This 126-nucleotide RNA sequence from Pseudorhizobium banfieldiae belongs to the Rfam family "Alphaproteobacterial sRNA ar35". The literature on the family includes a 2012 paper in RNA Biol by del Val et al., "A survey of sRNA families in alpha-proteobacteria". Rfam 15.1 lists 266 matches to the family in 153 species. It scores 54 bits against the family's covariance model.
RNA sequence: GUUGGCCUCAAGCGCCUGAAGCGGACGCGCCGGAAAUGCCAGUCCCGAUUCCUGGGUGACCACGGAUGUACUGGCACUGAAAGAAUCGGGAAUCAGAAAGGUCGGGCCAGCCCGACCUUUUUUGUG
Numbered sequence: 001g002u003u004g005g006c007c008u009c010a011a012g013c014g015c016c017u018g019a020a021g022c023g024g025a026c027g028c029g030c031c032g033g034a035a036a037u038g039c040c041a042g043u044c045c046c047g048a049u050u051c052c053u054g055g056g057u058g059a060c061c062a063c064g065g066a067u068g069u070a071c072u073g074g075c076a077c078u079g080a081a082a083g084a085a086u087c088g089g090g091a092a093u094c095a096g097a098a099a100g101g102u103c104g105g106g107c108c109a110g111c112c113c114g115a116c117c118u119u120u121u122u123u124g125u126g
Stems, first nucleotide, its partner, number of pairs: 001037003012030003044090007053079001057076002060074003092125002095122011